[Rfam]
The family of this 105-nucleotide RNA sequence from Rhodopseudomonas palustris is "traJ-II RNA". Rfam classes the family as a cis-regulatory element. Pairs were carried over by alignment from the consensus structure, which is taken from published work. Rfam 15.1 lists 174 matches to the family in 172 species. The organism belongs to Rhodopseudomonas palustris, within Bacteria.

RNA sequence: GAUUUCGGCAUGUGGAACGGGGCCCCAUUGAAGAAAAGGAGCCAUUCCGGUAAUCCUGAGUUGGGAUUAUCCCAUUUUGGGAUACUUGCUGAUAUCCGUGGGGUG
Numbered sequence: 001g002a003u004u005u006c007g008g009c010a011u012g013u014g015g016a017a018c019g020g021g022g023c024c025c026c027a028u029u030g031a032a033g034a035a036a037a038g039g040a041g042c043c044a045u046u047c048c049g050g051u052a053a054u055c056c057u058g059a060g061u062u063g064g065g066a067u068u069a070u071c072c073c074a075u076u077u078u079g080g081g082a083u084a085c086u087u088g089c090u091g092a093u094a095u096c097c098g099u100g101g102g103g104u105g
Base pairs, nucleotide, nucleotide: 001096002095003094005092006091007090008089009088013049014048015047016046017045020043021042024039025038028035029034053083054082055081056080062074063073064072065071066070